[Rfam]
RNA: Archaeal large subunit ribosomal RNA, nucleotides 1812 to 2180
RNA sequence: GGGGGGUAACCCGGGCUAGGGAACUCGGCAAAUUGGCCCCGUAACUUCGGGAGAAGGGGUGCCUACCGCGGUGGUAACUCCGCUGCGGUAGGUCGCAGUGACCAGGGGGACCUGACUGCUUAAUAAAAACAUAGGUCCCCGCUAGCCCGUAAGGGUGUGUACGGGGGCUAAAUCCUGGCCACUGGCGGUAGGUGAAACCCGGGUUCAACCGGGCGAAGCCCCGCUGAAGGCCGGGGGUAACUCUGACCCUCUCAAGGUAGCCAAAUGCCUUGCCGGGUAAGUUCCGGCGCGCAUGAAUGGAUCAACGAGGUCCCCACUGUCCCAGCCCGGGGCCCCGUGAACGCCCUGAGCCGGUGCACAGUCCGGCAA
Numbered sequence: 001g002g003g004g005g006g007u008a009a010c011c012c013g014g015g016c017u018a019g020g021g022a023a024c025u026c027g028g029c030a031a032a033u034u035g036g037c038c039c040c041g042u043a044a045c046u047u048c049g050g051g052a053g054a055a056g057g058g059g060u061g062c063c064u065a066c067c068g069c070g071g072u073g074g075u076a077a078c079u080c081c082g083c084u085g086c087g088g089u090a091g092g093u094c095g096c097a098g099u100g101a102c103c104a105g106g107g108g109g110a111c112c113u114g115a116c117u118g119c120u121u122a123a124u125a126a127a128a129a130c131a132u133a134g135g136u137c138c139c140c141g142c143u144a145g146c147c148c149g150u151a152a153g154g155g156u157g158u159g160u161a162c163g164g165g166g167g168c169u170a171a172a173u174c175c176u177g178g179c180c181a182c183u184g185g186c187g188g189u190a191g192g193u194g195a196a197a198c199c200c201g202g203g204u205u206c207a208a209c210c211g212g213g214c215g216a217a218g219c220c221c222c223g224c225u226g227a228a229g230g231c232c233g234g235g236g237g238u239a240a241c242u243c244u245g246a247c248c249c250u251c252u253c254a255a256g257g258u259a260g261c262c263a264a265a266u267g268c269c270u271u272g273c274c275g276g277g278u279a280a281g282u283u284c285c286g287g288c289g290c291g292c293a294u295g296a297a298u299g300g301a302u303c304a305a306c307g308a309g310g311u312c313c314c315c316a317c318u319g320u321c322c323c324a325g326c327c328c329g330g331g332g333c334c335c336c337g338u339g340a341a342c343g344c345c346c347u348g349a350g351c352c353g354g355u356g357c358a359c360a361g362u363c364c365g366g367c368a369a
Base pairs, nucleotide, nucleotide: 001336002335003334004333010331011330012329013328014327015326016325017324019322020321021320036060037059038058039057040056045050061093062092063091064090065089066088067087068086069085070084071083072082073081074080094098106315107314108313109312110311111310112309113307114306117131118130134169135168136167137166138165139164140163141162142159145156146155147154148153172302173301174300175299177232178231179230182229183228184225185224186223187222188221191220192219193218198213199212200211201210202209233251234250235249236248237247238246252256272288273287274286275285276284277283350367351366352365353364354363